Rfam assigns this 78-nucleotide RNA from Nicotiana attenuata to the family "MIR6145 microRNA precursor family". The match comes from Rfam's covariance-model search (60 bits). The source organism's lineage runs through Eukaryota, Viridiplantae, Embryophyta, asterids and Nicotiana.
Nucleotides: 078
Stems, first nucleotide, its partner, number of pairs: 001077004010068010022057010
Number, partner (000 for none) and nucleotide at each position: 001077g002076c003075a004074a005000u006000u007000a008000a009000u010068a011067u012066u013065g014064c015063u016062a017061c018060a019059u020000a021000u022057a023056g024055c025054a026053u027052u028051g029050g030049c031048u032000u033000g034000u035000a036000c037000g038000a039000g040000a041000a042000a043000u044000u045000g046000a047000u048031g049030g050029c051028c052027a053026a054025u055024g056023c057022u058000a059019g060018u061017g062016u063015a064014g065013c066012a067011a068010u069000u070000c071000c072000u073000c074004u075003u076002g077001c078000a